[Rfam]
RNA sequence: GCGACAGAAGAGAGUGAGCACACAUGGCUCUUUUUCUAGCAUGCUCAUGCUCGAAAGCUCUGCGUGCUUACUCUCUUCUUGUCUC
Numbered sequence: 001g002c003g004a005c006a007g008a009a010g011a012g013a014g015u016g017a018g019c020a021c022a023c024a025u026g027g028c029u030c031u032u033u034u035u036c037u038a039g040c041a042u043g044c045u046c047a048u049g050c051u052c053g054a055a056a057g058c059u060c061u062g063c064g065u066g067c068u069u070a071c072u073c074u075c076u077u078c079u080u081g082u083c084u085c
Stems, first nucleotide, its partner, number of pairs: 001085001003083005009077001010075012023062002
The record is an 85-nucleotide RNA, which matches "mir-156 microRNA precursor family" in Rfam. The family's consensus secondary structure was predicted with PFOLD. Rfam links the family to the GO terms miRNA-mediated post-transcriptional gene silencing and RISC complex. This family represents the plant microRNA (miRNA) precursor mir-156. For this family Rfam cites "MicroRNAs in plants" (Reinhart et al., Genes Dev, 2002). The family has 10 seed sequences and 1,401 matches in Rfam 15.1. Rfam's curators put it in the seed alignment.